[Rfam]
About this RNA: Shown here is a 77-nucleotide RNA from Polypterus senegalus, a member of the family "mir-17 microRNA precursor family". The match comes from Rfam's covariance-model search (57 bits).
RNA sequence: CAUGUAAUAGAAAAGUGCUCACAGUGCAGGUAGUCUGUAAUGAACUACUGCAAUGCAAGCACUUCUAGCAUUACUUU
Dot-bracket structure: ...((((.....(((((((..((.(((.(((((...........)))))))).))..)))))))......))))...
Rfam links the family to the GO terms miRNA-mediated post-transcriptional gene silencing and RISC complex. A reference for the family is Ambros (2001), "microRNAs: tiny regulators with great potential", Cell. Pairs were carried over by alignment from the consensus structure, which was predicted with RNAalifold.